[Rfam]
RNA: Small nucleolar RNA CD11
RNA sequence: AGUUUCUUAAGUGAUGAACGAUUUGACGGAAGAGUUCUUGAAGACUAUAUUCAUCACCCAAGACUGACUUCAUA
Numbered sequence: 001a002g003u004u005u006c007u008u009a010a011g012u013g014a015u016g017a018a019c020g021a022u023u024u025g026a027c028g029g030a031a032g033a034g035u036u037c038u039u040g041a042a043g044a045c046u047a048u049a050u051u052c053a054u055c056a057c058c059c060a061a062g063a064c065u066g067a068c069u070u071c072a073u074a
Base pairs, nucleotide, nucleotide: 001070002069029037030036031035